Description
A member of the RNA family "FMN riboswitch aptamer (RFN element)" from Nioella halotolerans, 151 nucleotides long.
[Rfam]
RNA sequence: AUCCGUUCUCAGGGCGGGGCGGAAUUCCCCACCGGCGGUAUGCGGGCACGGCCCCGCGAGCCCGCGAGCGCCCCCGCAUCAAGCGGGGGGUCCAGCAGACCCGGUGAGAGGCCGGGGCCGACGGUCAAAGUCCGGAUGGAAGAGAACGAGC
Numbered sequence: 001a002u003c004c005g006u007u008c009u010c011a012g013g014g015c016g017g018g019g020c021g022g023a024a025u026u027c028c029c030c031a032c033c034g035g036c037g038g039u040a041u042g043c044g045g046g047c048a049c050g051g052c053c054c055c056g057c058g059a060g061c062c063c064g065c066g067a068g069c070g071c072c073c074c075c076g077c078a079u080c081a082a083g084c085g086g087g088g089g090g091u092c093c094a095g096c097a098g099a100c101c102c103g104g105u106g107a108g109a110g111g112c113c114g115g116g117g118c119c120g121a122c123g124g125u126c127a128a129a130g131u132c133c134g135g136a137u138g139g140a141a142g143a144g145a146a147c148g149a150g151c
Stems, first nucleotide, its partner, number of pairs: 004148007017029003031131002033120002035065004060118002068096002100116005122134003

The match comes from Rfam's covariance-model search (96 bits).